A member of the RNA family "mir-9193 microRNA precursor family" from Myotis davidii, 73 nucleotides long. The organism belongs to Myotis, within Eukaryota. The family's consensus secondary structure was predicted with RNAalifold. It scores 65 bits against the family's covariance model.
RNA sequence: ACUGGAGGGAGGGGUCCCUCAGCCCAGAUUGUGAAAGGGCACAGGCCAGGCCAAGGGACCCCACCGGUGCACG
Number, nucleotide and partner (000 for none) at each position: 001a000002c000003u071004g070005g000006a068007g000008g065009g064010a000011g062012g061013g060014g059015u058016c057017c056018c055019u054020c000021a000022g051023c050024c049025c000026a000027g046028a000029u044030u043031g042032u041033g040034a000035a000036a000037g000038g000039g000040c033041a032042c031043a030044g029045g000046c027047c000048a000049g024050g023051c022052c000053a000054a019055g018056g017057g016058a015059c014060c013061c012062c011063a000064c009065c008066g000067g000068u006069g000070c004071a003072c000073g000